[Rfam]
RNA sequence: UUCAGGGAUAUUGUCCUGUCACAGCAGUACGCCUUUCGAAAGUUACUGGUGUGAUGGGACAUUGUCCUCGAC
Numbered sequence: 001u002u003c004a005g006g007g008a009u010a011u012u013g014u015c016c017u018g019u020c021a022c023a024g025c026a027g028u029a030c031g032c033c034u035u036u037c038g039a040a041a042g043u044u045a046c047u048g049g050u051g052u053g054a055u056g057g058g059a060c061a062u063u064g065u066c067c068u069c070g071a072c
Base pairs, nucleotide, nucleotide: 003070005068006067012061013060014059015058016057017056018055022051023050025048026047027046028045029044
RNA: mir-1000 microRNA precursor family
Organism: Dolichomitus sp. PSUC_FEM 10030005